Shown here is a 399-nucleotide part of an RNA from archaeon HR01, a member of the family "Archaeal large subunit ribosomal RNA".
The literature on the family includes a 2001 paper in Science by Yusupov et al., "Crystal structure of the ribosome at 5.5 A resolution".
Its family is annotated with structural constituent of ribosome and ribosome in the Gene Ontology.
[Rfam]
RNA sequence: GGUAGUAACAGCGAAGCGGGGUGGGAAUCCCCGCCGCCGAAGGGGCAAGGGUCUCCCGGCAAUGCGUCGUCAGCCGGGAGUAAGCCGGUCCUAAGGCCGACCUUAACCGGGUAGGCCGAAAGGGAAACCGGUUAAGAUUCCGGUGCCUCCGGAGUACGUGCGGCAACGCAAGCCCGGCAUCCGACGCUUCGGGGUAGGCUGAGCAGGGCCGUAGCUCUGUCUAAGCGUAUAAGCCUGGGGAGUGGCGUAAAGCCGAGAACCAGGUGAAAGCGCCAACGGCCGCCCGUAUGGGCGGUUCAGCUGAUCCCUGGAGCCCGUGAAAAGGGUGCUGGGAAGGAUCUCCGGAGACCGUGCCAAGAACUGACACCGGUGCCCCUGGGUGAGAAGCCCAAGGCGUCU
Numbered sequence: 001g002g003u004a005g006u007a008a009c010a011g012c013g014a015a016g017c018g019g020g021g022u023g024g025g026a027a028u029c030c031c032c033g034c035c036g037c038c039g040a041a042g043g044g045g046c047a048a049g050g051g052u053c054u055c056c057c058g059g060c061a062a063u064g065c066g067u068c069g070u071c072a073g074c075c076g077g078g079a080g081u082a083a084g085c086c087g088g089u090c091c092u093a094a095g096g097c098c099g100a101c102c103u104u105a106a107c108c109g110g111g112u113a114g115g116c117c118g119a120a121a122g123g124g125a126a127a128c129c130g131g132u133u134a135a136g137a138u139u140c141c142g143g144u145g146c147c148u149c150c151g152g153a154g155u156a157c158g159u160g161c162g163g164c165a166a167c168g169c170a171a172g173c174c175c176g177g178c179a180u181c182c183g184a185c186g187c188u189u190c191g192g193g194g195u196a197g198g199c200u201g202a203g204c205a206g207g208g209c210c211g212u213a214g215c216u217c218u219g220u221c222u223a224a225g226c227g228u229a230u231a232a233g234c235c236u237g238g239g240g241a242g243u244g245g246c247g248u249a250a251a252g253c254c255g256a257g258a259a260c261c262a263g264g265u266g267a268a269a270g271c272g273c274c275a276a277c278g279g280c281c282g283c284c285c286g287u288a289u290g291g292g293c294g295g296u297u298c299a300g301c302u303g304a305u306c307c308c309u310g311g312a313g314c315c316c317g318u319g320a321a322a323a324g325g326g327u328g329c330u331g332g333g334a335a336g337g338a339u340c341u342c343c344g345g346a347g348a349c350c351g352u353g354c355c356a357a358g359a360a361c362u363g364a365c366a367c368c369g370g371u372g373c374c375c376c377u378g379g380g381u382g383a384g385a386a387g388c389c390c391a392a393g394g395c396g397u398c399u
Base pairs, nucleotide, nucleotide: 016034017033018032019031020030021029035396036395037394038393043375044374045373046372049355050354054079055078056077057076058075059074063072064071086351087350088349090123091122095117096116097115098114100112102110103109127144128143129142130141131140147347148346149345150344151343152342153341154340180326181325182324186314187313188312189311190310191309192308193307194306197302198301199300200299201298203220204219205218206217207216225273226272227271228270234264235263236262237261238260244254245253246252285290361370362369377391378390379389380388